Rfam assigns this 83-nucleotide RNA sequence from Koleobacter methoxysyntrophicus to the family "ZMP/ZTP riboswitch aptamer (pfl RNA motif)". Pairs were carried over by alignment from the consensus structure, which is taken from published work. Taxonomically the source falls in Koleobacter (Bacteria, Bacillota, Clostridia, Koleobacterales).
RNA sequence: AGAGGGCUCCAUUACUGGCGGAAGUGGGAUUAACCACAGGGGAGUGGAGCUUAUAUGGAGAGCCGACCGCCUGGGCAAAGAUU
Numbered sequence: 001a002g003a004g005g006g007c008u009c010c011a012u013u014a015c016u017g018g019c020g021g022a023a024g025u026g027g028g029a030u031u032a033a034c035c036a037c038a039g040g041g042g043a044g045u046g047g048a049g050c051u052u053a054u055a056u057g058g059a060g061a062g063c064c065g066a067c068c069g070c071c072u073g074g075g076c077a078a079a080g081a082u083u
Stems, first nucleotide, its partner, number of pairs: 004052009015041002017071005024037004062076003